[Rfam]
RNA sequence: AAAUUAUCGGAGGAUUUGACCUGAAUUCAUAAUU
Numbered sequence: 001a002a003a004u005u006a007u008c009g010g011a012g013g014a015u016u017u018g019a020c021c022u023g024a025a026u027u028c029a030u031a032a033u034u
Base pairs, nucleotide, nucleotide: 001034003033004032005031006030007029009028011022012021013020